The family of this 61-nucleotide sequence from Pristionchus pacificus is "mir-8364 microRNA precursor family". It scores 72 bits against the family's covariance model. Pairs were carried over by alignment from the consensus structure, which was predicted with RNAalifold.

RNA sequence: UCUUCAUUCUGUAUGCUCUUUCACCGGUCAGAGAGGCGAGAGAGUGUUCAAAAUGAAGAGA
Numbered sequence: 001u002c003u004u005c006a007u008u009c010u011g012u013a014u015g016c017u018c019u020u021u022c023a024c025c026g027g028u029c030a031g032a033g034a035g036g037c038g039a040g041a042g043a044g045u046g047u048u049c050a051a052a053a054u055g056a057a058g059a060g061a
Stems, first nucleotide, its partner, number of pairs: 001059007010050001013047005019041004
Overview: NCBI's taxonomy places the organism under Eukaryota, Bilateria, Rhabditina, Neodiplogasteridae, Pristionchus.